[Rfam]
RNA sequence: GGUUGGUGAUGAUAAAUCCAAAGGCUUGUUUCUCACAAACAUUCGCAGUGGCCGCCUGAGAGCUUUCGCCUUUCGCCGGGCUUGAGAGCUCGUGCUGCUCUUAUCCUUCCUUGGAUGUCUGAAACC
Numbered sequence: 001g002g003u004u005g006g007u008g009a010u011g012a013u014a015a016a017u018c019c020a021a022a023g024g025c026u027u028g029u030u031u032c033u034c035a036c037a038a039a040c041a042u043u044c045g046c047a048g049u050g051g052c053c054g055c056c057u058g059a060g061a062g063c064u065u066u067c068g069c070c071u072u073u074c075g076c077c078g079g080g081c082u083u084g085a086g087a088g089c090u091c092g093u094g095c096u097g098c099u100c101u102u103a104u105c106c107u108u109c110c111u112u113g114g115a116u117g118u119c120u121g122a123a124a125c126c
Stems, first nucleotide, its partner, number of pairs: 001126004062089006

Small nucleolar RNA SNORD14: a 126-nucleotide RNA sequence from Punica granatum.
The family's consensus secondary structure was predicted with PFOLD.
Rfam 15.1 lists 4,559 matches to the family in 936 species.
By type it is a C/D-box small nucleolar RNA.
Its family is annotated with nucleolus and RNA processing in the Gene Ontology.
U14 small nucleolar RNA (U14 snoRNA) is required for early cleavages of eukaryotic precursor rRNAs. In yeasts, this molecule possess a stem-loop region (known as the Y-domain) which is essential for function.
For this family Rfam cites "An essential domain in Saccharomyces cerevisiae U14 snoRNA is absent in vertebrates, but conserved in other yeasts" (Samarsky et al., Nucleic Acids Res, 1996).
The source organism's lineage runs through Eukaryota, Streptophyta, Gunneridae, malvids and Punica.